[Rfam]
RNA sequence: CUGUGAUAAUGGCAUUUCUUAGGACACCUUUGGAUUACAAACAACUACUCUUCCGAGCAGC
Numbered sequence: 001c002u003g004u005g006a007u008a009a010u011g012g013c014a015u016u017u018c019u020u021a022g023g024a025c026a027c028c029u030u031u032g033g034a035u036u037a038c039a040a041a042c043a044a045c046u047a048c049u050c051u052u053c054c055g056a057g058c059a060g061c
Stems, first nucleotide, its partner, number of pairs: 001060004

Rfam assigns this 61-nucleotide sequence from Chinchilla lanigera to the family "Small nucleolar RNA SNORD58". Rfam 15.1 lists 2,484 matches to the family in 680 species. The family's consensus secondary structure was predicted with PFOLD. Clan: SNORD58 clan. The literature on the family includes a 2002 paper in Mol Cell Biol by Galardi et al., "Purified box C/D snoRNPs are able to reproduce site-specific 2'-O-methylation of target RNA in vitro". It is annotated as a C/D-box small nucleolar RNA.